[Rfam]
RNA: Repression of heat shock gene expression (ROSE) element
RNA sequence: UCGGAUGCCGAUUGUGGAUCCGGCCGAACCGGCUCCCGGGUGGGUCCCGGGGCCGCUCGUACCUCGUUGCUCAAUGGAGGACAUGGCUAUGAGCG
Numbered sequence: 001u002c003g004g005a006u007g008c009c010g011a012u013u014g015u016g017g018a019u020c021c022g023g024c025c026g027a028a029c030c031g032g033c034u035c036c037c038g039g040g041u042g043g044g045u046c047c048c049g050g051g052g053c054c055g056c057u058c059g060u061a062c063c064u065c066g067u068u069g070c071u072c073a074a075u076g077g078a079g080g081a082c083a084u085g086g087c088u089a090u091g092a093g094c095g
Stems, first nucleotide, its partner, number of pairs: 001023006008017002030055007038047002056093006062086002066082003070079003